[Rfam]
RNA sequence: AAAAGUCUUCAGGGCAGGGUGAAAUUCCCUACCGGCGGUAAAGCCCGCGAGCCUAAUUAAGGCAGAUUUGGUGAGAUUCCAAAGCCGACAGUAAAGUCUGGAUGAAAGAAGAAAAUG
Numbered sequence: 001a002a003a004a005g006u007c008u009u010c011a012g013g014g015c016a017g018g019g020u021g022a023a024a025u026u027c028c029c030u031a032c033c034g035g036c037g038g039u040a041a042a043g044c045c046c047g048c049g050a051g052c053c054u055a056a057u058u059a060a061g062g063c064a065g066a067u068u069u070g071g072u073g074a075g076a077u078u079c080c081a082a083a084g085c086c087g088a089c090a091g092u093a094a095a096g097u098c099u100g101g102a103u104g105a106a107a108g109a110a111g112a113a114a115a116u117g
Stems, first nucleotide, its partner, number of pairs: 006112005017029003031097002033087002035048004043085002051063003067083005089100003
A member of the RNA family "FMN riboswitch aptamer (RFN element)" from Sarcina ventriculi, 117 nucleotides long. About the family: The RFN element is a highly conserved domain that is found frequently in the 5'-untranslated regions of prokaryotic mRNAs that encode for flavin mononucleotide (FMN) biosynthesis and transport proteins. The organism belongs to Sarcina, within Bacteria. Pairs were carried over by alignment from the consensus structure, which is taken from published work.